[Rfam]
RNA: Small nucleolar RNA snoR27
RNA sequence: CAUGGAUCGAUGAUGUGAUUCUUAACUGCGUUAUCUAUCUUUAAAUCUUCUCAAGUACUGAAGAAAACAUUACCUGCUGAGAUCCAAG
Numbered sequence: 001c002a003u004g005g006a007u008c009g010a011u012g013a014u015g016u017g018a019u020u021c022u023u024a025a026c027u028g029c030g031u032u033a034u035c036u037a038u039c040u041u042u043a044a045a046u047c048u049u050c051u052c053a054a055g056u057a058c059u060g061a062a063g064a065a066a067a068c069a070u071u072a073c074c075u076g077c078u079g080a081g082a083u084c085c086a087a088g
Stems, first nucleotide, its partner, number of pairs: 001088001003086005